[Rfam]
RNA sequence: CAUUGUCUUCACGGGGUAUAAUGCGAUAUUGAAAGCGUUAUCAUCGUGAGAGGCUAAGA
Numbered sequence: 001c002a003u004u005g006u007c008u009u010c011a012c013g014g015g016g017u018a019u020a021a022u023g024c025g026a027u028a029u030u031g032a033a034a035g036c037g038u039u040a041u042c043a044u045c046g047u048g049a050g051a052g053g054c055u056a057a058g059a
Stems, first nucleotide, its partner, number of pairs: 001058001003056001005054004009049006016042001019040006
RNA: mir-8229 microRNA precursor family